[Rfam]
RNA sequence: GUGCCUGGAUGAAGGCUUAACCAGAAACCCUCGUACGAGGUUUGGUUAAGCUGGAAGGAUUAGCUGCCAC
Numbered sequence: 001g002u003g004c005c006u007g008g009a010u011g012a013a014g015g016c017u018u019a020a021c022c023a024g025a026a027a028c029c030c031u032c033g034u035a036c037g038a039g040g041u042u043u044g045g046u047u048a049a050g051c052u053g054g055a056a057g058g059a060u061u062a063g064c065u066g067c068c069a070c
Stems, first nucleotide, its partner, number of pairs: 001070003005066001014052010029040003
Selenocysteine insertion sequence 1: a 70-nucleotide RNA sequence from Apostichopus japonicus. The family's RNA type in Rfam is cis-regulatory element. The base pairs follow the family's consensus structure, which is taken from published work. The source organism's lineage runs through Eukaryota, Bilateria, Eleutherozoa, Aspidochirotida and Apostichopus.